Notes: Rfam assigns this 72-nucleotide sequence from Wickerhamomyces canadensis to the family "tRNA". Rfam's curators write: Transfer RNA (tRNA) molecules are approximately 80 nucleotides in length. The source organism's lineage runs through Eukaryota, Dikarya, Ascomycota, Phaffomycetales and Wickerhamomyces. It is one of the family's seed sequences. The family's RNA type in Rfam is transfer RNA. The family's consensus secondary structure is taken from published work.
RNA sequence: GAUCUUAUAGUUAAAUGGUUAUAACACCAUCCCUUCACGAUGGGAGUACCAGUUCGAUUCUGGUUGAGAUUA
Numbered sequence: 001g002a003u004c005u006u007a008u009a010g011u012u013a014a015a016u017g018g019u020u021a022u023a024a025c026a027c028c029a030u031c032c033c034u035u036c037a038c039g040a041u042g043g044g045a046g047u048a049c050c051a052g053u054u055c056g057a058u059u060c061u062g063g064u065u066g067a068g069a070u071u072a
Stems, first nucleotide, its partner, number of pairs: 001071007010025004027043005048064005